[Rfam]
RNA: Ribosomal S15 leader
Organism: Hydrocarboniclastica marina
RNA sequence: GACGCAAACUGUAAAUAUGCGCGGUUUGUCGUCUCUUAGUUGAGCAUAUUAAGAGGUUUUUGACAUGGCACUGAAUGCCGAAGAGAAAGGCACGAUCGUAAAAGACUUUCAACGCGCCGAG
Numbered sequence: 001g002a003c004g005c006a007a008a009c010u011g012u013a014a015a016u017a018u019g020c021g022c023g024g025u026u027u028g029u030c031g032u033c034u035c036u037u038a039g040u041u042g043a044g045c046a047u048a049u050u051a052a053g054a055g056g057u058u059u060u061u062g063a064c065a066u067g068g069c070a071c072u073g074a075a076u077g078c079c080g081a082a083g084a085g086a087a088a089g090g091c092a093c094g095a096u097c098g099u100a101a102a103a104g105a106c107u108u109u110c111a112a113c114g115c116g117c118c119g120a121g
Stems, first nucleotide, its partner, number of pairs: 007026006049075002052072002055069001